Rfam assigns this 389-nucleotide sequence to the family "Bacteroidales-2 RNA". It is one of the family's seed sequences. The family's consensus secondary structure is taken from published work.
RNA sequence: GCACGUCCCGCACCUUUUCCAGUGCGGCAGCUAACAGCAAGGCGGUGGGCGGCUGGUGAUUUCAGUGCAUAACAUUGGCAUACACUCUUUCUCAAGCUCCGUGCGGAUUGUUUUUCCCGCAUUGUGAACUUUACUCCGGCUGCAACUGGGCAGACUUAUGGCACUAUUUUUUCACUACCUUGUUUCCAUACAACUCACGCUCCCAAAUUAUUGCGUUUUGUGUAUGCGGUCAAAGUACACGUACUUUGCCGUUCCUACUUGCUACAUUGGUUUGUAGUUCCGUGCGGUGUGGUUGUUUAACACCCUCUUUAAUCGCUCCAAAGCGAACGGACGUUUUUUGCUUUUCCAGAGUGCAAAAAAAUGUUUCCAAUAAAAAAACUCUUUUGUUU
Number, nucleotide and partner (000 for none) at each position: 001g000002c000003a000004c000005g000006u000007c000008c027009c026010g025011c024012a023013c022014c000015u000016u000017u000018u000019c000020c000021a000022g013023u012024g011025c010026g009027g008028c000029a000030g000031c000032u000033a000034a000035c000036a000037g000038c000039a000040a000041g000042g000043c000044g000045g000046u000047g000048g000049g000050c000051g000052g097053c096054u094055g093056g092057u000058g000059a000060u000061u000062u000063c000064a000065g000066u000067g000068c000069a000070u000071a000072a000073c000074a000075u000076u000077g000078g000079c000080a000081u000082a000083c000084a000085c000086u000087c000088u000089u000090u000091c000092u056093c055094a054095a000096g053097c052098u000099c000100c000101g000102u000103g120104c119105g118106g117107a000108u000109u000110g000111u000112u000113u000114u000115u000116c000117c106118c105119g104120c103121a000122u000123u000124g175125u174126g173127a172128a000129c000130u000131u000132u000133a000134c000135u000136c000137c000138g000139g000140c153141u152142g151143c150144a000145a000146c000147u000148g000149g000150g143151c142152a141153g140154a000155c000156u000157u000158a000159u000160g000161g000162c000163a000164c000165u000166a000167u000168u000169u000170u000171u000172u127173c126174a125175c124176u000177a000178c000179c000180u000181u000182g000183u000184u000185u000186c000187c226188a225189u224190a223191c222192a221193a000194c000195u000196c000197a216198c215199g214200c213201u000202c000203c270204c269205a268206a267207a000208u000209u000210a000211u000212u000213g200214c199215g198216u197217u000218u000219u000220g000221u192222g191223u190224a189225u188226g187227c251228g250229g249230u000231c248232a247233a246234a245235g244236u243237a242238c000239a000240c000241g000242u237243a236244c235245u234246u233247u232248g231249c229250c228251g227252u000253u000254c000255c000256u000257a000258c000259u000260u000261g278262c277263u276264a275265c274266a273267u206268u205269g204270g203271u000272u000273u266274g265275u264276a263277g262278u261279u331280c330281c329282g328283u000284g000285c000286g304287g303288u302289g301290u300291g000292g000293u000294u000295g000296u000297u000298u000299a000300a290301c289302a288303c287304c286305c000306u000307c000308u000309u000310u000311a000312a000313u326314c325315g324316c323317u322318c000319c000320a000321a000322a317323g316324c315325g314326a313327a000328c282329g281330g280331a279332c000333g000334u000335u000336u000337u000338u000339u000340g000341c000342u000343u000344u000345u000346c000347c000348a382349g381350a380351g379352u378353g000354c000355a000356a000357a000358a000359a000360a000361a000362u369363g368364u000365u000366u000367c000368c363369a362370a000371u000372a000373a000374a000375a000376a000377a000378a352379c351380u350381c349382u348383u000384u000385u000386g000387u000388u000389u000